[Rfam]
RNA sequence: UAAUGAAGAUAUAAAAAGGAGUUGCGUCAACAACUCCUAGUGUAAAUCCGUUUAAGACGGUAGCCAAUUGAAUAAUUAAGAAAUA
Numbered sequence: 001u002a003a004u005g006a007a008g009a010u011a012u013a014a015a016a017a018g019g020a021g022u023u024g025c026g027u028c029a030a031c032a033a034c035u036c037c038u039a040g041u042g043u044a045a046a047u048c049c050g051u052u053u054a055a056g057a058c059g060g061u062a063g064c065c066a067a068u069u070g071a072a073u074a075a076u077u078a079a080g081a082a083a084u085a
Stems, first nucleotide, its partner, number of pairs: 021034004048060005

The family of this 85-nucleotide sequence from Streptococcus hillyeri is "RNA anti-toxin A".
It scores 59 bits against the family's covariance model.
Rfam 15.1 lists 190 matches to the family in 120 species.
Pairs were carried over by alignment from the consensus structure, which was predicted with RNAalifold.